[Rfam]
Rfam assigns this 78-nucleotide RNA from Phascolarctos cinereus to the family "mir-16 microRNA precursor family". Clan: mir-15 clan. On this family, see Calin et al., Proc Natl Acad Sci U S A 2002: "Frequent deletions and down-regulation of micro- RNA genes miR15 and miR16 at 13q14 in chronic lymphocytic leukemia". Rfam links the family to the GO terms miRNA-mediated post-transcriptional gene silencing and RISC complex. The source organism's lineage runs through Eukaryota, Eumetazoa, Deuterostomia, Craniata and Phascolarctos. The match comes from Rfam's covariance-model search (37 bits).

RNA sequence: CCCUGUCUGGAGCAGCACUCUCAAUACUGGCAUGGCUUUCCCUCAGGUGCCAAUAUUUCUGUGCUGCUAAAGCCAGGG
Number, nucleotide and partner (000 for none) at each position: 001c078002c077003c076004u000005g074006u000007c072008u000009g000010g000011a068012g067013c066014a065015g064016c063017a062018c061019u000020c000021u000022c000023a057024a056025u055026a054027c000028u052029g051030g050031c049032a048033u047034g000035g000036c000037u000038u000039u000040c000041c000042c000043u000044c000045a000046g000047g033048u032049g031050c030051c029052a028053a000054u026055a025056u024057u023058u000059c000060u000061g018062u017063g016064c015065u014066g013067c012068u011069a000070a000071a000072g007073c000074c005075a000076g003077g002078g001